[Rfam]
RNA sequence: UGUCUCCUCCAGUUUUUCUCCGAAAACCUGGAUUCCGGCCCGCACAACAGCGGGCCUUUUUUU
Number, nucleotide and partner (000 for none) at each position: 001u000002g000003u000004c000005u000006c000007c000008u032009c031010c030011a029012g028013u000014u026015u025016u000017u000018c000019u000020c000021c000022g000023a000024a000025a015026a014027c000028c012029u011030g010031g009032a008033u000034u000035c000036c000037g056038g055039c054040c053041c052042g051043c050044a000045c000046a000047a000048c000049a000050g043051c042052g041053g040054g039055c038056c037057u000058u000059u000060u000061u000062u000063u000